[Rfam]
RNA sequence: CCGCGGCCGGCGGGGAAACCGUUACCAUUACUGUGUUUAGUAAUGGUAACGGUUCUGCCGACGGCUGGGA
Numbered sequence: 001c002c003g004c005g006g007c008c009g010g011c012g013g014g015g016a017a018a019c020c021g022u023u024a025c026c027a028u029u030a031c032u033g034u035g036u037u038u039a040g041u042a043a044u045g046g047u048a049a050c051g052g053u054u055c056u057g058c059c060g061a062c063g064g065c066u067g068g069g070a
Base pairs, nucleotide, nucleotide: 008063009062011060012059013058017054018053019052020051022049023048024047025046026045027044028043029042030041031040032039033038
This 70-nucleotide RNA from Columbina picui belongs to the Rfam family "mir-451 microRNA precursor family". Lineage of the source: Eukaryota > Archelosauria > Archosauria > Dinosauria > Columbina. Its family is annotated with RISC complex and miRNA-mediated post-transcriptional gene silencing in the Gene Ontology. For this family Rfam cites "Role of MicroRNA miR-27a and miR-451 in the regulation of MDR1/P-glycoprotein expression in human cancer cells" (Zhu et al., Biochem Pharmacol, 2008).